The record is a 307-nucleotide RNA sequence from Peromyscus maniculatus, which matches "HIF-1 alpha IRES" in Rfam. A search with the family's covariance model found it, with a score of 188 bits. This family represents the hypoxia-inducible factor 1-alpha internal ribosome entry site. HIF-1a is a subunit of the HIF-1 transcription factor, which induces transcription of several genes involved in the cellular response to hypoxia. For this family Rfam cites "Hypoxia-inducible factor-1alpha mRNA contains an internal ribosome entry site that allows efficient translation during normoxia and hypoxia" (Lang et al., Mol Biol Cell, 2002). NCBI's taxonomy places the organism under Eukaryota, Opisthokonta, Amniota, Myomorpha, Peromyscus maniculatus. The family's RNA type in Rfam is internal ribosome entry site.
RNA sequence: CUCGUCUGAGGGGACGCGAGGACCGUCCUCGCCGCCGUCGCCGGCAGUGUCUGGCCAGGCCCUGACAAGCGAGCCCGAGGACCGAGCGCCCGAGGAGCCCGAGCCGGAGCCCCCAGCGAGCACAGCCUGCAGCUCCCGCCGCCUCGCCGUCCCGGGGUUGGGGAGGGUUGGAGGGGGCGUCUCGCCUCGCACCCCGCCUCUGGACUUGCCCCUUUCUCUGCGCGUGCGGACCGAGCCAGCGCUUAGGCCGGAGCGAAGCCCGGGGCCCGCCGGCCGGGAAGGCACCGCGGGGCACCGAUUCGCCAUG
Numbered sequence: 001c002u003c004g005u006c007u008g009a010g011g012g013g014a015c016g017c018g019a020g021g022a023c024c025g026u027c028c029u030c031g032c033c034g035c036c037g038u039c040g041c042c043g044g045c046a047g048u049g050u051c052u053g054g055c056c057a058g059g060c061c062c063u064g065a066c067a068a069g070c071g072a073g074c075c076c077g078a079g080g081a082c083c084g085a086g087c088g089c090c091c092g093a094g095g096a097g098c099c100c101g102a103g104c105c106g107g108a109g110c111c112c113c114c115a116g117c118g119a120g121c122a123c124a125g126c127c128u129g130c131a132g133c134u135c136c137c138g139c140c141g142c143c144u145c146g147c148c149g150u151c152c153c154g155g156g157g158u159u160g161g162g163g164a165g166g167g168u169u170g171g172a173g174g175g176g177g178c179g180u181c182u183c184g185c186c187u188c189g190c191a192c193c194c195c196g197c198c199u200c201u202g203g204a205c206u207u208g209c210c211c212c213u214u215u216c217u218c219u220g221c222g223c224g225u226g227c228g229g230a231c232c233g234a235g236c237c238a239g240c241g242c243u244u245a246g247g248c249c250g251g252a253g254c255g256a257a258g259c260c261c262g263g264g265g266c267c268c269g270c271c272g273g274c275c276g277g278g279a280a281g282g283c284a285c286c287g288c289g290g291g292g293c294a295c296c297g298a299u300u301c302g303c304c305a306u307g
Stems, first nucleotide, its partner, number of pairs: 001013003016032006034060003086180003090177001133175003137171001206239003210235001212233001217230003249273001251271001253270003